Overview:
A member of the RNA family "7SK RNA" from Tricholaema leucomelas, 314 nucleotides long. About the family: 7SK was discovered as an abundant small nuclear RNA in the mid-70s but a possible function has only recently been suggested. The family's RNA type in Rfam is non-coding RNA gene. Pairs were carried over by alignment from the consensus structure, which is taken from published work.
[Rfam]
RNA sequence: AGAUGUGAGGGUGAUCUGGCUGUGACAUCUGUCAUCCCAUUGAUAACCAGGGUUGAUUUGGCUGAUCAGACUGGCUAGGCAGCUGUCCCCGUCCUCCCUGACCGAUCCAUGUGCAUCCCUCCCGAAGCUGCGCACUCGGUCAAAGAGGACAACCUUCCCAGAUAGAGGCAGCACCAUUCAUCGGUCAAGGGUAUAUGGUAGCUGCACUCCACUGCUAGAACCUCCAAACAAGCUCAAAGUCCAUUUGUAGGAGAAUGUAGGGUAGACAAGCUUCCAAGACUGCAGUUUUUUUCUUAGGGUCACAAGGAUGCUCA
Numbered sequence: 001a002g003a004u005g006u007g008a009g010g011g012u013g014a015u016c017u018g019g020c021u022g023u024g025a026c027a028u029c030u031g032u033c034a035u036c037c038c039a040u041u042g043a044u045a046a047c048c049a050g051g052g053u054u055g056a057u058u059u060g061g062c063u064g065a066u067c068a069g070a071c072u073g074g075c076u077a078g079g080c081a082g083c084u085g086u087c088c089c090c091g092u093c094c095u096c097c098c099u100g101a102c103c104g105a106u107c108c109a110u111g112u113g114c115a116u117c118c119c120u121c122c123c124g125a126a127g128c129u130g131c132g133c134a135c136u137c138g139g140u141c142a143a144a145g146a147g148g149a150c151a152a153c154c155u156u157c158c159c160a161g162a163u164a165g166a167g168g169c170a171g172c173a174c175c176a177u178u179c180a181u182c183g184g185u186c187a188a189g190g191g192u193a194u195a196u197g198g199u200a201g202c203u204g205c206a207c208u209c210c211a212c213u214g215c216u217a218g219a220a221c222c223u224c225c226a227a228a229c230a231a232g233c234u235c236a237a238a239g240u241c242c243a244u245u246u247g248u249a250g251g252a253g254a255a256u257g258u259a260g261g262g263u264a265g266a267c268a269a270g271c272u273u274c275c276a277a278g279a280c281u282g283c284a285g286u287u288u289u290u291u292u293c294u295u296a297g298g299g300u301c302a303c304a305a306g307g308a309u310g311c312u313c314a
Base pairs, nucleotide, nucleotide: 002107003106005102006101008099009098010097011096013093014092018090019089024087025086026085027084029082030081031080032079033078035074036073038069042067043066044065047061048060117171118168119167120166121165122139123138124137125136127135140162141161147158148157149156201271202270203269207265208264210262212260213259214258215257222253223252224251225250228248229247230246231245232244300308301307